Background: Rfam assigns this 170-nucleotide RNA sequence from Digitaria exilis to the family "small nucleolar RNA snoR143". NCBI's taxonomy places the organism under Eukaryota, Streptophytina, commelinids, Paniceae, Digitaria. A search with the family's covariance model found it, with a score of 99 bits. Its family is annotated with RNA processing and nucleolus in the Gene Ontology.
[Rfam]
RNA sequence: UUGCACUAUCGAUUUAUGUUCUGCCUUCAUUCAAUGUUGGUGGGAUAUUGUACUGGUGCAAAAAGGAAAUGCCAUUCCUUGGAGUGGCGGCGGCCAGACAACCGUUGAGACAGAUCCACAGAUAAAUGACCAAUUUUCUGUUGUUUGUCUACUAAAUCUGUCUCACAUUU
Numbered sequence: 001u002u003g004c005a006c007u008a009u010c011g012a013u014u015u016a017u018g019u020u021c022u023g024c025c026u027u028c029a030u031u032c033a034a035u036g037u038u039g040g041u042g043g044g045a046u047a048u049u050g051u052a053c054u055g056g057u058g059c060a061a062a063a064a065g066g067a068a069a070u071g072c073c074a075u076u077c078c079u080u081g082g083a084g085u086g087g088c089g090g091c092g093g094c095c096a097g098a099c100a101a102c103c104g105u106u107g108a109g110a111c112a113g114a115u116c117c118a119c120a121g122a123u124a125a126a127u128g129a130c131c132a133a134u135u136u137u138c139u140g141u142u143g144u145u146u147g148u149c150u151a152c153u154a155a156a157u158c159u160g161u162c163u164c165a166c167a168u169u170u
Stems, first nucleotide, its partner, number of pairs: 002060005009052001013050001016048005025042001027040003107164008125146002129142001
Dot-bracket structure: .(((((..(...(..(((((....(.(((........))).).))))).).)...)))))..............................................((((((((..........((..(............)..))..........))))))))......